[Rfam]
A member of the RNA family "Small nucleolar RNA SNORD47" from Piprites chloris, 76 nucleotides long. On this family, see Kiss-Laszlo et al., Cell 1996: "Site-specific ribose methylation of preribosomal RNA: a novel function for small nucleolar RNAs". The family has 20 seed sequences and 755 matches in Rfam 15.1. Lineage of the source: Eukaryota > Archelosauria > Dinosauria > Pipridae > Piprites.

RNA sequence: AGCCACUGAUGAGAUUGAUUCUGCCAGAUGAAAUCACUGUGAUUUUACCCUUUCCGUUCCACUUUGUGCUGAGGCU
Numbered sequence: 001a002g003c004c005a006c007u008g009a010u011g012a013g014a015u016u017g018a019u020u021c022u023g024c025c026a027g028a029u030g031a032a033a034u035c036a037c038u039g040u041g042a043u044u045u046u047a048c049c050c051u052u053u054c055c056g057u058u059c060c061a062c063u064u065u066g067u068g069c070u071g072a073g074g075c076u
Stems, first nucleotide, its partner, number of pairs: 001076004